Ure2 internal ribosome entry site (IRES): a 105-nucleotide sequence from Saccharomyces paradoxus. The family's consensus secondary structure is taken from published work.

RNA sequence: CAAAGUAAUGACAACGGAAAUAACAUCAAGGAUACCUUAGAACAACAUCGACAACAACAACAGGCAUUUUCGGAUAUGAGUCACGUGGAGUAUUCCAGAAUUACA
Numbered sequence: 001c002a003a004a005g006u007a008a009u010g011a012c013a014a015c016g017g018a019a020a021u022a023a024c025a026u027c028a029a030g031g032a033u034a035c036c037u038u039a040g041a042a043c044a045a046c047a048u049c050g051a052c053a054a055c056a057a058c059a060a061c062a063g064g065c066a067u068u069u070u071c072g073g074a075u076a077u078g079a080g081u082c083a084c085g086u087g088g089a090g091u092a093u094u095c096c097a098g099a100a101u102u103a104c105a
Base pairs, nucleotide, nucleotide: 014086015085016084019081023077025075026074027073029070030069031068032067033066035064036063037062
Dot-bracket structure: .............(((..(...(.(((.(((((.(((........................))).)))))..))).)...)..)))...................